The record is an 82-nucleotide RNA sequence from Dethiosulfatibacter aminovorans, which matches "c-di-GMP-I riboswitch aptamer" in Rfam. A search with the family's covariance model found it, with a score of 70 bits. Gene Ontology term of the family: cyclic-di-GMP binding. NCBI's taxonomy places the organism under Bacteria, Bacillati, Tissierellia, Dethiosulfatibacter, Dethiosulfatibacter aminovorans.
[Rfam]
RNA sequence: AAUUUAAAAAGGCAAACUGUCUGAAAAGACAGGACGCAAAGCCAAUGGGCCUAAGCAUCUCGUACGGCAGCCGGCUGCUUUU
Numbered sequence: 001a002a003u004u005u006a007a008a009a010a011g012g013c014a015a016a017c018u019g020u021c022u023g024a025a026a027a028g029a030c031a032g033g034a035c036g037c038a039a040a041g042c043c044a045a046u047g048g049g050c051c052u053a054a055g056c057a058u059c060u061c062g063u064a065c066g067g068c069a070g071c072c073g074g075c076u077g078c079u080u081u082u
Base pairs, nucleotide, nucleotide: 012037013036017032018031019030020029021028022027040076041075042074043073047072048071049068050067051066056062